DUF805 RNA: a 69-nucleotide sequence from Bacteroidetes bacterium UKL13-3. It scores 82 bits against the family's covariance model. The family's consensus secondary structure is taken from published work. NCBI's taxonomy places the organism under Bacteria, Pseudomonadati, Bacteroidota. The family has 46 seed sequences and 281 matches in Rfam 15.1.
Nucleotides: 069
Base pairs, nucleotide, nucleotide: 006023007022008021009020036052037051038050043063044062
Number, partner (000 for none) and nucleotide at each position: 001000a002000a003000a004000a005000u006023g007022u008021g009020g010000a011000g012000a013000c014000c015000a016000g017000c018000g019000a020009c021008c022007a023006c024000u025000a026000a027000a028000u029000a030000a031000a032000a033000c034000g035000g036052g037051g038050c039000g040000a041000c042000a043063c044062c045000g046000a047000a048000a049000a050038g051037c052036c053000a054000u055000a056000c057000g058000a059000g060000u061000a062044g063043g064000a065000u066000g067000a068000u069000u